Listeria sRNA rli28: a 183-nucleotide sequence from Listeria grayi. A reference for the family is Michels et al. (1991), "Muscarinic cholinergic control of vasopressin secretion from the acute hypothalamoneurohypophysial explant", Neuroendocrinology. Taxonomically the source falls in Listeria grayi (Bacteria, Bacilli, Caryophanales, Listeria).
[Rfam]
RNA sequence: CGGAAAAUGGUUAAUAUUCUUCAGCAGUAAAGUGAAAAAGAUGGUGGCUAAUCCUGAACAAAGGGGUGAUGCCAAUGGUUUUUGAUGGUCUGACUCCUGGAAAGGGUUAAUCAUGUCUGUGUAUGAAGCAAUGACUUUUACAGUAGCUUUUGCUGCCUUAGUCGUUCUAAUACUGGACUUCCA
Numbered sequence: 001c002g003g004a005a006a007a008u009g010g011u012u013a014a015u016a017u018u019c020u021u022c023a024g025c026a027g028u029a030a031a032g033u034g035a036a037a038a039a040g041a042u043g044g045u046g047g048c049u050a051a052u053c054c055u056g057a058a059c060a061a062a063g064g065g066g067u068g069a070u071g072c073c074a075a076u077g078g079u080u081u082u083u084g085a086u087g088g089u090c091u092g093a094c095u096c097c098u099g100g101a102a103a104g105g106g107u108u109a110a111u112c113a114u115g116u117c118u119g120u121g122u123a124u125g126a127a128g129c130a131a132u133g134a135c136u137u138u139u140a141c142a143g144u145a146g147c148u149u150u151u152g153c154u155g156c157c158u159u160a161g162u163c164g165u166u167c168u169a170a171u172a173c174u175g176g177a178c179u180u181c182c183a
Base pairs, nucleotide, nucleotide: 044156045155046154047153048152062098063097064096065095066094067093069091071089072088115135116134117133120130121129122128161178162177163176
Source information
The family's RNA type in Rfam is small RNA. It scores 122 bits against the family's covariance model.